The record is a 179-nucleotide RNA sequence from Bacteroides sp. OM05-12, which matches "Bacteroidales-1 6S-Bacteroidales RNA suggested" in Rfam. It is annotated as a small RNA. Bacteroidales-1 was first reported in a comparative genomics-based approach of genome and metagenome sequences from Weinberg et al. 2010 In a high-resolution transcriptome map study of Bacteroides thetaiotaomicron, Ryan et al. 2020 report this sRNA as 6S RNA homologue of Bacteroides, in the study they obtain evidence of small product RNAs (pRNAs) related to 6S function.
[Rfam]
RNA sequence: AGCCGCAUUGGUUUGACUGGGAAACUCAUCAAGUAAAUCAGAAAACCGAGACAAGCUUCGCUUCUCAAUGGCGGGCCACACCUUAGGGUAGCAUUUAUGCCAGUGGAUUACAAAGAGGACGAGCACUCAAAACAUGUCAUUCGGAGUUUCAUCACAUCUAUACCGGUGCGGCUUUUUUA
Numbered sequence: 001a002g003c004c005g006c007a008u009u010g011g012u013u014u015g016a017c018u019g020g021g022a023a024a025c026u027c028a029u030c031a032a033g034u035a036a037a038u039c040a041g042a043a044a045a046c047c048g049a050g051a052c053a054a055g056c057u058u059c060g061c062u063u064c065u066c067a068a069u070g071g072c073g074g075g076c077c078a079c080a081c082c083u084u085a086g087g088g089u090a091g092c093a094u095u096u097a098u099g100c101c102a103g104u105g106g107a108u109u110a111c112a113a114a115g116a117g118g119a120c121g122a123g124c125a126c127u128c129a130a131a132a133c134a135u136g137u138c139a140u141u142c143g144g145a146g147u148u149u150c151a152u153c154a155c156a157u158c159u160a161u162a163c164c165g166g167u168g169c170g171g172c173u174u175u176u177u178u179a
Base pairs, nucleotide, nucleotide: 055124056123057122059121060120062119063118064117065116066115069112070111076106077105078104079103080089081088082087091100092099093098